Rfam assigns this 84-nucleotide RNA sequence from Conger conger to the family "mir-143 microRNA precursor family". For this family Rfam cites "The developmental miRNA profiles of zebrafish as determined by small RNA cloning" (Chen et al., Genes Dev, 2005). Rfam links the family to the GO terms miRNA-mediated post-transcriptional gene silencing and RISC complex. Lineage of the source: Eukaryota > Chordata > Teleostomi > Congridae > Conger. A search with the family's covariance model found it, with a score of 102 bits. The family's consensus secondary structure was predicted with RNAalifold.
[Rfam]
RNA sequence: GGUCUCCCGGCCCAAGGUGCAGUGCUGCAUCUCUGGUCAGUUGGGAGUCUGAGAUGAAGCACUGUAGCUCGGGAGGGGGGGCAC
Number, nucleotide and partner (000 for none) at each position: 001g000002g000003u000004c000005u000006c000007c000008c000009g000010g000011c073012c072013c071014a000015a000016g068017g000018u066019g065020c064021a063022g062023u061024g060025c059026u058027g000028c056029a055030u054031c053032u052033c051034u000035g049036g048037u046038c045039a000040g000041u000042u000043g000044g000045g038046a037047g000048u036049c035050u000051g033052a032053g031054a030055u029056g028057a000058a026059g025060c024061a023062c022063u021064g020065u019066a018067g000068c016069u000070c000071g013072g012073g011074a000075g000076g000077g000078g000079g000080g000081g000082c000083a000084c000